Overview
A member of the RNA family "Selenocysteine insertion sequence 1" from Scleropages formosus, 64 nucleotides long. The family's RNA type in Rfam is cis-regulatory element. It scores 36 bits against the family's covariance model.

RNA sequence: UGCACAUUAGUGAGGGCCUCACAGUAAACCAGCCCUGGGUUGUGGGGCCUGAUGUCCUUGUGUG
Numbered sequence: 001u002g003c004a005c006a007u008u009a010g011u012g013a014g015g016g017c018c019u020c021a022c023a024g025u026a027a028a029c030c031a032g033c034c035c036u037g038g039g040u041u042g043u044g045g046g047g048c049c050u051g052a053u054g055u056c057c058u059u060g061u062g063u064g
Base pairs, nucleotide, nucleotide: 003064004063005062015049016048017047018046019045020044021043022042023041024040030037031036